Annotation:
A member of the RNA family "Small nucleolar RNA Z43" from Vitis rotundifolia, 98 nucleotides long. Rfam links the family to the GO terms nucleolus and RNA processing. The match comes from Rfam's covariance-model search (110 bits).
[Rfam]
RNA sequence: GGACUGUGACGAUUCGUGUGAAAGGUCUCGUUCGUCGUAAUGGCGAGUAGCUCGCCUUGCCGACCAUCCUGAUAUAUCACCACCCAUAUUCUGAGUCC
Numbered sequence: 001g002g003a004c005u006g007u008g009a010c011g012a013u014u015c016g017u018g019u020g021a022a023a024g025g026u027c028u029c030g031u032u033c034g035u036c037g038u039a040a041u042g043g044c045g046a047g048u049a050g051c052u053c054g055c056c057u058u059g060c061c062g063a064c065c066a067u068c069c070u071g072a073u074a075u076a077u078c079a080c081c082a083c084c085c086a087u088a089u090u091c092u093g094a095g096u097c098c
Stems, first nucleotide, its partner, number of pairs: 001098004045058002047053001
Dot-bracket structure: ((((........................................(((.....)...))....................................))))